[Rfam]
RNA: mir-731 microRNA precursor family
Organism: Amphiprion ocellaris
RNA sequence: AGGUGUUUUUCCUAAAUGACACGUUUUCUCCCGGAUUGCUGACAGCUGUAAAACACAACCGGGAAUUCCGUGUCAGCCAAGAAUGACACCU
Numbered sequence: 001a002g003g004u005g006u007u008u009u010u011c012c013u014a015a016a017u018g019a020c021a022c023g024u025u026u027u028c029u030c031c032c033g034g035a036u037u038g039c040u041g042a043c044a045g046c047u048g049u050a051a052a053a054c055a056c057a058a059c060c061g062g063g064a065a066u067u068c069c070g071u072g073u074c075a076g077c078c079a080a081g082a083a084u085g086a087c088a089c090c091u
Stems, first nucleotide, its partner, number of pairs: 001091007009083003017075007029064006036058003